[Rfam]
The record is a 74-nucleotide RNA from Bursaphelenchus okinawaensis, which matches "SmY spliceosomal RNA" in Rfam. Rfam classes the family as a spliceosomal small nuclear RNA. The literature on the family includes a 1996 paper in RNA by Maroney et al., "Direct analysis of nematode cis- and trans-spliceosomes: a functional role for U5 snRNA in spliced leader addition trans-splicing and the identification of novel Sm snRNPs". Pairs were carried over by alignment from the consensus structure, which is taken from published work.
RNA sequence: GGAUAGUUAUCAAAGUAAACAGGGCCUUUGAGAAGACCCAGUGAACUAUUUUUGGAAGGGCAUUUAGGUGCCUU
Numbered sequence: 001g002g003a004u005a006g007u008u009a010u011c012a013a014a015g016u017a018a019a020c021a022g023g024g025c026c027u028u029u030g031a032g033a034a035g036a037c038c039c040a041g042u043g044a045a046c047u048a049u050u051u052u053u054g055g056a057a058g059g060g061c062a063u064u065u066a067g068g069u070g071c072c073u074u
Base pairs, nucleotide, nucleotide: 022039023038024037026035027034028033058073059072060071061070062069063068